Nucleotides: 074
Stems, first nucleotide, its partner, number of pairs: 002072004
Number, partner (000 for none) and nucleotide at each position: 001000a002072c003071u004070g005069a006000u007000c008000a009000a010000u011000g012000a013000u014000g015000u016000g017000a018000c019000u020000u021000u022000u023000u024000u025000u026000c027000u028000u029000u030000g031000u032000g033000g034000a035000c036000u037000g038000u039000u040000g041000g042000a043000u044000g045000a046000a047000g048000c049000u050000u051000a052000c053000g054000g055000a056000u057000a058000u059000g060000g061000g062000a063000c064000u065000g066000a067000g068000a069005u070004c071003a072002g073000a074000u